The family of this 91-nucleotide RNA from Lactobacillus psittaci is "Lacto-usp RNA".
The match comes from Rfam's covariance-model search (90 bits).
The family's consensus secondary structure is taken from published work.

RNA sequence: GAUCAAACCUACGACGUGGUAGCUUGUAAAUAACUACUGAAUCGGAAUGCUGUCUUUGUUACAGAAUCCAUAUUCACUGCGAUACAGGCUA
Numbered sequence: 001g002a003u004c005a006a007a008c009c010u011a012c013g014a015c016g017u018g019g020u021a022g023c024u025u026g027u028a029a030a031u032a033a034c035u036a037c038u039g040a041a042u043c044g045g046a047a048u049g050c051u052g053u054c055u056u057u058g059u060u061a062c063a064g065a066a067u068c069c070a071u072a073u074u075c076a077c078u079g080c081g082a083u084a085c086a087g088g089c090u091a
Base pairs, nucleotide, nucleotide: 021090022089023088024087025086026085027084028083038076039075040074041073042072044069045068046067050064051063052062053061